Record summary:
The record is a 275-nucleotide sequence from Ascosphaera apis, which matches "Group I catalytic intron" in Rfam. It scores 96 bits against the family's covariance model. Pairs were carried over by alignment from the consensus structure, which is taken from published work. Rfam describes the family as follows. Group I catalytic introns are large self-splicing ribozymes. They catalyse their own excision from mRNA, tRNA and rRNA precursors in a wide range of organisms. The core secondary structure consists of 9 paired regions (P1-P9). These fold to essentially two domains - the P4-P6 domain (formed from the stacking of P5, P4, P6 and P6a helices) and the P3-P9 domain (formed from the P8, P3, P7 and P9 helices).
RNA sequence: ACGAUAAGGUUGAAAUACAGCCUCGUGAUAGUAAAAUUAUCACUAAAUUCUCAAAUUGCGGAAAAUCCCUAAAAGAAUUUUAACCAAACAAACAUGGUAACAUUGUUUGUGGCACAGGUAAUGACUCGUGGUAUGGUAAAAUCAAAAUUCAUAUAUGGGUAAUCUGCAGCCAAAUACCAAAUCUUAAUAUAUUUGGUAUGCAGUUCAUCGACUAAAUGGGAAUUGGCAUAAAUAUUAUGUUUAAGAUAUAGUCAAACCUUACUCGAAAGAGUACA
Dot-bracket structure: ....(.((((((.....)))))).)....(......)........(((((.((...((((((....(((.......................................................................................)))...))))))((...((((...((.(....).))...))))...))...[.[[[[[..)).))))).((((((...))))))........]]]]]].....(((((....)))))..